[Rfam]
Rfam assigns this 48-nucleotide RNA from Pluralibacter gergoviae to the family "Guanidine-II riboswitch aptamer (mini-ykkC)". About the family: Simpler in structure and has fewer highly conserved nucleotide positions than the ykkC-yxkD leader. Pairs were carried over by alignment from the consensus structure, which is taken from published work.

RNA sequence: CUUACGGGACGACCCGUAAGCGUAUCUUAAAUAUCGGGGACGACCCCA
Numbered sequence: 001c002u003u004a005c006g007g008g009a010c011g012a013c014c015c016g017u018a019a020g021c022g023u024a025u026c027u028u029a030a031a032u033a034u035c036g037g038g039g040a041c042g043a044c045c046c047c048a
Base pairs, nucleotide, nucleotide: 001020002019003018004017005016006015007014008013036047037046038045039044